[Rfam]
Nucleotides: 173
Stems, first nucleotide, its partner, number of pairs: 013094006030081004105165004121154009131144002
Number, partner (000 for none) and nucleotide at each position: 001000a002000u003000c004000g005000u006000g007000c008000g009000g010000c011000a012000c013094c014093g015092c016091u017090u018089a019000u020000a021000a022000u023000c024000c025000g026000u027000g028000u029000u030081g031080c032079u033078c034000a035000u036000a037000a038000g039000c040000c041000u042000c043000u044000u045000a046000g047000c048000a049000c050000c051000a052000u053000a054000g055000g056000c057000u058000u059000g060000u061000u062000a063000c064000u065000a066000c067000u068000u069000g070000u071000a072000g073000u074000u075000g076000a077000a078033g079032a080031g081030c082000g083000u084000c085000a086000a087000c088000a089018u090017a091016a092015g093014c094013g095000u096000a097000g098000a099000c100000g101000a102000a103000a104000a105165g106164a107163g108162c109000a110000u111000c112000u113000u114000a115000g116000c117000a118000c119000c120000c121154u122153u123152u124151c125150a126149u127148g128147a129146c130000a131144u132143c133000c134000u135000g136000u137000u138000c139000c140000u141000a142000c143132g144131a145000u146129g147128u148127u149126g150125u151124g152123a153122g154121g155000g156000u157000c158000g159000g160000g161000a162108g163107u164106u165105c166000a167000u168000a169000c170000a171000u172000u173000a
A member of the RNA family "small nucleolar RNA snR35" from Basidiobolus meristosporus, 173 nucleotides long. Taxonomically the source falls in Basidiobolus meristosporus (Eukaryota, Fungi, Basidiobolomycetes, Basidiobolaceae). The family has 4 seed sequences and 75 matches in Rfam 15.1. A search with the family's covariance model found it, with a score of 54 bits. It is annotated as an H/ACA-box small nucleolar RNA. For this family Rfam cites "Identification and functional analysis of 20 Box H/ACA small nucleolar RNAs (snoRNAs) from Schizosaccharomyces pombe" (Li et al., J Biol Chem, 2005).